The family of this 99-nucleotide RNA sequence from Paenibacillus beijingensis is "Glycine riboswitch aptamer". A search with the family's covariance model found it, with a score of 69 bits.
RNA sequence: AUGAACGUAAUGGGAGAGACUGACCGGAACAUGCGGCGGCGCCGAAGGAGUAAACCUACUUAAGGUGAAUCUCUCAGGCAAAAGGACCUUUACGGGACG
Number, nucleotide and partner (000 for none) at each position: 001a000002u000003g000004a000005a000006c094007g093008u092009a091010a090011u000012g088013g087014g000015a000016g000017a000018g000019a000020c039021u038022g037023a000024c000025c000026g000027g000028a000029a000030c000031a000032u000033g000034c000035g000036g000037c022038g021039g020040c000041g079042c078043c077044g075045a074046a000047g000048g073049a072050g071051u000052a000053a000054a066055c065056c064057u063058a000059c000060u000061u000062a000063a057064g056065g055066u054067g000068a000069a000070u000071c050072u049073c048074u045075c044076a000077g043078g042079c041080a000081a000082a000083a000084g000085g000086a000087c013088c012089u000090u010091u009092a008093c007094g006095g000096g000097a000098c000099g000
NCBI's taxonomy places the organism under Bacteria, Bacilli, Caryophanales, Paenibacillaceae, Paenibacillus.